A member of the RNA family "Small nucleolar RNA SNORD97" from Pangasianodon hypophthalmus, 153 nucleotides long.
[Rfam]
RNA sequence: GCACCCAAUGAUUAUAAAAAGACGCGUUAUUCUGAGGGUUUUUGCUAGAUGUCAGCUUUUCUACCUUUUCUCCUCUUUAUUCCUUCUUCUCCUGUUCUCUUCUCUGAAGCUGACAACUGGUCCGUUGACUGCGAUUAUGAGAUAUGAGGGUGC
Numbered sequence: 001g002c003a004c005c006c007a008a009u010g011a012u013u014a015u016a017a018a019a020a021g022a023c024g025c026g027u028u029a030u031u032c033u034g035a036g037g038g039u040u041u042u043u044g045c046u047a048g049a050u051g052u053c054a055g056c057u058u059u060u061c062u063a064c065c066u067u068u069u070c071u072c073c074u075c076u077u078u079a080u081u082c083c084u085u086c087u088u089c090u091c092c093u094g095u096u097c098u099c100u101u102c103u104c105u106g107a108a109g110c111u112g113a114c115a116a117c118u119g120g121u122c123c124g125u126u127g128a129c130u131g132c133g134a135u136u137a138u139g140a141g142a143u144a145u146g147a148g149g150g151u152g153c
Base pairs, nucleotide, nucleotide: 001153002152003151004150005149006148035067036066037065038064039063
NCBI's taxonomy places the organism under Eukaryota, Opisthokonta, Bilateria, Clupeocephala, Pangasianodon. A reference for the family is Vitali et al. (2003), "Identification of 13 novel human modification guide RNAs", Nucleic Acids Res. The base pairs follow the family's consensus structure, which was predicted with WAR. The family's RNA type in Rfam is C/D-box small nucleolar RNA. The match comes from Rfam's covariance-model search (72 bits).